RNA sequence: GCCCUCUAUAAGUUUUGCAUAGUUGCACUACAAGAAGAAUUGAGUUGUGCAAAUCUAUGCAAAACUGAUAGCGGUC
Numbered sequence: 001g002c003c004c005u006c007u008a009u010a011a012g013u014u015u016u017g018c019a020u021a022g023u024u025g026c027a028c029u030a031c032a033a034g035a036a037g038a039a040u041u042g043a044g045u046u047g048u049g050c051a052a053a054u055c056u057a058u059g060c061a062a063a064a065c066u067g068a069u070a071g072c073g074g075u076c
Base pairs, nucleotide, nucleotide: 003074004073006071007070008069009068011066012065013064014063015062016061017060018059019058023052024051025050026049027048028047030045031044
This 76-nucleotide sequence from Eleutherodactylus coqui belongs to the Rfam family "mir-19 microRNA precursor family". A reference for the family is Lagos-Quintana et al. (2001), "Identification of novel genes coding for small expressed RNAs", Science. A search with the family's covariance model found it, with a score of 62 bits. The family has 106 seed sequences and 2,337 matches in Rfam 15.1.